[Rfam]
RNA sequence: CCCUUGGAGCGUCACACAAACGAGAGUAGCUAAGGCGAAAUCGGACGCGCUGAAUUGGGAA
Number, nucleotide and partner (000 for none) at each position: 001c059002c058003c057004u000005u000006g000007g000008a000009g048010c047011g046012u045013c044014a000015c000016a000017c000018a000019a000020a000021c043022g042023a041024g000025a000026g000027u000028a000029g036030c035031u000032a000033a000034g000035g030036c029037g000038a000039a000040a000041u023042c022043g021044g013045a012046c011047g010048c009049g000050c000051u000052g000053a000054a000055u000056u000057g003058g002059g001060a000061a000
RNA: RAGATH-18 RNA
Organism: Alicyclobacillus tolerans